[Rfam]
RNA sequence: UGUAGGUGAAACUAGGGUUCCGGUCUUUCCCCAUGGGAUGAGAGAUGUCUGGUCCGAGAGUUUCCGGCUUCGUCAUGACGAGGCUCCACGGAGGGAUAAAAGCCCGGGAGAU
Numbered sequence: 001u002g003u004a005g006g007u008g009a010a011a012c013u014a015g016g017g018u019u020c021c022g023g024u025c026u027u028u029c030c031c032c033a034u035g036g037g038a039u040g041a042g043a044g045a046u047g048u049c050u051g052g053u054c055c056g057a058g059a060g061u062u063u064c065c066g067g068c069u070u071c072g073u074c075a076u077g078a079c080g081a082g083g084c085u086c087c088a089c090g091g092a093g094g095g096a097u098a099a100a101a102g103c104c105c106g107g108g109a110g111a112u
Stems, first nucleotide, its partner, number of pairs: 008064005015055002020052002022049001023046006066085008087107001089110001093105003
RNA: Guanidine-I riboswitch aptamer